[Rfam]
Nucleotides: 069
Stems, first nucleotide, its partner, number of pairs: 001069003005065004010060008020050009
Number, partner (000 for none) and nucleotide at each position: 001069c002068c003067a004000u005065u006064a007063c008062u009000u010060a011059a012058a013057c014056g015055u016054g017053g018000a019000u020050g021049u022048a023047c024046u025045u026044g027043c028042u029000u030000u031000g032000c033000a034000a035000u036000u037000a038000a039000g040000a041000a042028a043027g044026u045025a046024a047023g048022u049021g050020c051000u052000c053017c054016c055015a056014u057013g058012u059011u060010u061000u062008g063007g064006u065005g066000a067003u068002g069001g